Description
Shown here is a 99-nucleotide sequence, a member of the family "DUF3800-V RNA". Rfam's curators put it in the seed alignment. Pairs were carried over by alignment from the consensus structure, which is taken from published work. Rfam classes the family as a small RNA.
RNA sequence: AUAAAUGAGCGGUAAGACCUUUGUGGGUUGUUCUGUGUGUUCCCUUCCAUAGGUUGGCCACAGCACAGACGCAACAGGCCCGCAGGGCACGCUCUUUUU
Numbered sequence: 001a002u003a004a005a006u007g008a009g010c011g012g013u014a015a016g017a018c019c020u021u022u023g024u025g026g027g028u029u030g031u032u033c034u035g036u037g038u039g040u041u042c043c044c045u046u047c048c049a050u051a052g053g054u055u056g057g058c059c060a061c062a063g064c065a066c067a068g069a070c071g072c073a074a075c076a077g078g079c080c081c082g083c084a085g086g087g088c089a090c091g092c093u094c095u096u097u098u099u
Base pairs, nucleotide, nucleotide: 001099003097004096005095009092010091024082025081026080027079028078029077031076032069033068034067035066036065037064038063043057044056047053048052